[Rfam]
RNA sequence: GAGAGACAUGACGGCGCAAGUCCGAAGGUCUCCGGCGUUUCGGGGAGGAAACGCCCGCUCAAUCAGAGCGACUGCUCAAGACGGCCCGCUGCGAUUAUCCCCCGCAGCGGGCCGGUUCUUUUUGAG
Number, nucleotide and partner (000 for none) at each position: 001g033002a000003g032004a031005g030006a029007c028008a000009u026010g000011a000012c000013g000014g000015c000016g000017c000018a000019a000020g000021u000022c000023c000024g000025a000026a009027g000028g007029u006030c005031u004032c003033c001034g055035g054036c053037g052038u051039u050040u049041c048042g000043g000044g000045g000046a000047g000048g041049a040050a039051a038052c037053g036054c035055c034056c000057g000058c000059u125060c124061a123062a122063u000064c074065a073066g072067a000068g000069c000070g000071a000072c066073u065074g064075c000076u000077c000078a000079a117080g116081a000082c114083g113084g112085c111086c110087c109088g108089c107090u106091g105092c104093g103094a000095u000096u000097a000098u000099c000100c000101c000102c000103c093104g092105c091106a090107g089108c088109g087110g086111g085112c084113c083114g082115g000116u080117u079118c000119u000120u000121u000122u062123u061124g060125a059126g000
RNA: Caulobacter sRNA CrfA
Organism: Phenylobacterium zucineum